[Rfam]
RNA: Flavo-1 RNA
RNA sequence: CCUCAACCGCGUGAGGGAUAGCAGUGAAAAUCCUUUAUGUUUUUCCUUUAAAAACAUAAAGAUUGCAACGAAUAGCCCGACCCGUA
Numbered sequence: 001c002c003u004c005a006a007c008c009g010c011g012u013g014a015g016g017g018a019u020a021g022c023a024g025u026g027a028a029a030a031u032c033c034u035u036u037a038u039g040u041u042u043u044u045c046c047u048u049u050a051a052a053a054a055c056a057u058a059a060a061g062a063u064u065g066c067a068a069c070g071a072a073u074a075g076c077c078c079g080a081c082c083c084g085u086a
Base pairs, nucleotide, nucleotide: 015078016077017076019074020073024069025068029064030063031062032061035059036058037057038056039055040054041053042052043051044050